[Rfam]
RNA sequence: GCGAGGUGACGAUGAAAUUCACGUCUGUCAAUCCACUGAAUUACUGUGAUGUUAACAGUGAAUCUCGACAGGUUCUGAUCGC
Numbered sequence: 001g002c003g004a005g006g007u008g009a010c011g012a013u014g015a016a017a018u019u020c021a022c023g024u025c026u027g028u029c030a031a032u033c034c035a036c037u038g039a040a041u042u043a044c045u046g047u048g049a050u051g052u053u054a055a056c057a058g059u060g061a062a063u064c065u066c067g068a069c070a071g072g073u074u075c076u077g078a079u080c081g082c
Stems, first nucleotide, its partner, number of pairs: 001082004